[Rfam]
RNA sequence: CUGAGACCUGGUUCAAGUAAUCCAGGAUAGGCUGUGUAUCUCCUGGUUGGCCUAUUCUCGAUUACUUGCACUAGGGGGUAG
Number, nucleotide and partner (000 for none) at each position: 001c000002u080003g079004a000005g000006a000007c075008c074009u073010g072011g071012u070013u000014c068015a067016a066017g065018u064019a063020a062021u061022c060023c000024a058025g057026g056027a055028u054029a053030g052031g051032c050033u049034g000035u000036g000037u000038a000039u000040c000041u000042c000043c000044u000045g000046g000047u000048u000049g033050g032051c031052c030053u029054a028055u027056u026057c025058u024059c000060g022061a021062u020063u019064a018065c017066u016067u015068g014069c000070a012071c011072u010073a009074g008075g007076g000077g000078g000079u003080a002081g000

Overview
A member of the RNA family "mir-26 microRNA precursor family" from Callorhinchus milii, 81 nucleotides long. The family's consensus secondary structure was predicted with RNAalifold.